Rfam assigns this 139-nucleotide RNA sequence from Digitaria exilis to the family "Small nucleolar RNA Z247".
The family's consensus secondary structure was predicted with PFOLD.
It scores 44 bits against the family's covariance model.
A reference for the family is Chen et al. (2003), "The high diversity of snoRNAs in plants: identification and comparative study of 120 snoRNA genes from Oryza sativa", Nucleic Acids Res.
The organism belongs to Digitaria, within Eukaryota.
[Rfam]
RNA sequence: CCCAUCGGCGAUGAAGAACUGGUUGGGUACGUCCUGACCGGUCUCGACGAAGAGUACAAUCCCCUGGUGUCAGCCCUCAUUGCCAGGGUUGAACCAGUCACCUAUGGGGAACUGCUUGCUCAGAUCCUGAGCUUUGAAA
Numbered sequence: 001c002c003c004a005u006c007g008g009c010g011a012u013g014a015a016g017a018a019c020u021g022g023u024u025g026g027g028u029a030c031g032u033c034c035u036g037a038c039c040g041g042u043c044u045c046g047a048c049g050a051a052g053a054g055u056a057c058a059a060u061c062c063c064c065u066g067g068u069g070u071c072a073g074c075c076c077u078c079a080u081u082g083c084c085a086g087g088g089u090u091g092a093a094c095c096a097g098u099c100a101c102c103u104a105u106g107g108g109g110a111a112c113u114g115c116u117u118g119c120u121c122a123g124a125u126c127c128u129g130a131g132c133u134u135u136g137a138a139a
Base pairs, nucleotide, nucleotide: 005137006136007135008134089107090106091105093103